Overview:
Shown here is a 99-nucleotide RNA from Sphingomonas parva, a member of the family "Glycine riboswitch aptamer". This family represents the bacterial glycine riboswitch. Glycine riboswitches usually consist of two metabolite-binding aptamers domains with similar structures in tandem. The aptamers cooperatively bind glycine to regulate the expression of downstream genes. The match comes from Rfam's covariance-model search (57 bits). The base pairs follow the family's consensus structure.
[Rfam]
RNA sequence: GGUGCACGUGCGGGAGAGCGCGGCAGGUCGUGAGGCCGGUCGCCGCCGAAGGAGCAACCGCCCCGGAAUCUCUCAGGCAAACGGGACCGCACGGGCACA
Numbered sequence: 001g002g003u004g005c006a007c008g009u010g011c012g013g014g015a016g017a018g019c020g021c022g023g024c025a026g027g028u029c030g031u032g033a034g035g036c037c038g039g040u041c042g043c044c045g046c047c048g049a050a051g052g053a054g055c056a057a058c059c060g061c062c063c064c065g066g067a068a069u070c071u072c073u074c075a076g077g078c079a080a081a082c083g084g085g086a087c088c089g090c091a092c093g094g095g096c097a098c099a
Stems, first nucleotide, its partner, number of pairs: 007093007020043004045078003048074002052072003058066002